[Rfam]
The family of this 118-nucleotide RNA sequence from Anabarilius grahami is "U4 spliceosomal RNA". Taxonomically the source falls in Anabarilius (Eukaryota, Bilateria, Deuterostomia, Chordata). It scores 90 bits against the family's covariance model. For this family Rfam cites "Structures of the human pre-catalytic spliceosome and its precursor spliceosome" (Zhan et al., Cell Res, 2018). The family's RNA type in Rfam is spliceosomal small nuclear RNA. About the family: U4 small nuclear RNA (U4 snRNA) is a component of the major U2-dependent spliceosome.

RNA sequence: UAGCCUAUGAGGUUUAUCCGAGGCGUGAUUAUUGCUGGUUGAAAACUUUAUCCAAUACCCCGCCGGGAUGACUUGAAAUACAGUCAGCCUUGGCAAUUUUUGUCAGCCUCUUAGGAGG
Number, nucleotide and partner (000 for none) at each position: 001u025002a000003g024004c023005c022006u000007a000008u000009g000010a000011g019012g018013u000014u000015u000016a000017u000018c012019c011020g000021a000022g005023g004024c003025g001026u000027g000028a000029u000030u000031a000032u000033u000034g000035c000036u000037g000038g000039u000040u000041g000042a000043a000044a000045a000046c000047u000048u000049u000050a000051u000052c000053c000054a000055a000056u000057a000058c000059c000060c000061c000062g094063c093064c092065g090066g089067g088068a000069u086070g085071a084072c083073u082074u000075g000076a000077a000078a000079u000080a000081c000082a073083g072084u071085c070086a069087g000088c067089c066090u065091u000092g064093g063094c062095a000096a000097u000098u000099u000100u000101u000102g000103u000104c000105a000106g000107c118108c117109u116110c115111u000112u000113a000114g000115g110116a109117g108118g107